[Rfam]
RNA: Eukaryotic large subunit ribosomal RNA, nucleotides 1785 to 2261
RNA sequence: GGUAGUAGCAAAUAUUCAAGUGAGAUCCUUGAAGACUGAAGUGGAGAAGGGUUCCACGUGAACAGCAGUUGAAUGUGGGUCAGUCGAUCCUAAGAUAUUGGCUAGUGCCGUUUUUUAAAAUAAAAUAGAGGAAUGGAGGUGUAAUCCAUCUGAUAAAUCGAAAGGGAAACGGGUUAAUAUUCCCGUACCUGGACACGGAGAUAAAUGCUCAUCGUGAGAAUUUAGCGCGGUAACGCAAAUGAACUCGGAAACAUUGAGGAAAGCCCGAGCCAGAGUUCUCUUUUCUGGUUAAGGAACGGACUCCCUGGAAUCGGUUCAGCCGGAGAUAGGGAUGUUGUUUCCGUAAAGCGCCACGGUUCCUGUGGUGUCUCGUGCGCUUUGUUCGAUCCAUGAAAAUCCGAGGGAAGCUAUUUGAAUUUCGUGCCAGAUCGUACCCAUAUCCGCAGCAGGUCUCCAAGGUGAACAGCCUCUAGUCGA
Numbered sequence: 001g002g003u004a005g006u007a008g009c010a011a012a013u014a015u016u017c018a019a020g021u022g023a024g025a026u027c028c029u030u031g032a033a034g035a036c037u038g039a040a041g042u043g044g045a046g047a048a049g050g051g052u053u054c055c056a057c058g059u060g061a062a063c064a065g066c067a068g069u070u071g072a073a074u075g076u077g078g079g080u081c082a083g084u085c086g087a088u089c090c091u092a093a094g095a096u097a098u099u100g101g102c103u104a105g106u107g108c109c110g111u112u113u114u115u116u117a118a119a120a121u122a123a124a125a126u127a128g129a130g131g132a133a134u135g136g137a138g139g140u141g142u143a144a145u146c147c148a149u150c151u152g153a154u155a156a157a158u159c160g161a162a163a164g165g166g167a168a169a170c171g172g173g174u175u176a177a178u179a180u181u182c183c184c185g186u187a188c189c190u191g192g193a194c195a196c197g198g199a200g201a202u203a204a205a206u207g208c209u210c211a212u213c214g215u216g217a218g219a220a221u222u223u224a225g226c227g228c229g230g231u232a233a234c235g236c237a238a239a240u241g242a243a244c245u246c247g248g249a250a251a252c253a254u255u256g257a258g259g260a261a262a263g264c265c266c267g268a269g270c271c272a273g274a275g276u277u278c279u280c281u282u283u284u285c286u287g288g289u290u291a292a293g294g295a296a297c298g299g300a301c302u303c304c305c306u307g308g309a310a311u312c313g314g315u316u317c318a319g320c321c322g323g324a325g326a327u328a329g330g331g332a333u334g335u336u337g338u339u340u341c342c343g344u345a346a347a348g349c350g351c352c353a354c355g356g357u358u359c360c361u362g363u364g365g366u367g368u369c370u371c372g373u374g375c376g377c378u379u380u381g382u383u384c385g386a387u388c389c390a391u392g393a394a395a396a397u398c399c400g401a402g403g404g405a406a407g408c409u410a411u412u413u414g415a416a417u418u419u420c421g422u423g424c425c426a427g428a429u430c431g432u433a434c435c436c437a438u439a440u441c442c443g444c445a446g447c448a449g450g451u452c453u454c455c456a457a458g459g460u461g462a463a464c465a466g467c468c469u470c471u472a473g474u475c476g477a
Stems, first nucleotide, its partner, number of pairs: 015033006034475004043455004049435002054078006063071002085431003089165002094159002097111002100109003120149002169186005189427004215421005221414001227236003244402006253387004258382001260380005266372003269289006293342004302332006311323004349367007441450002457469004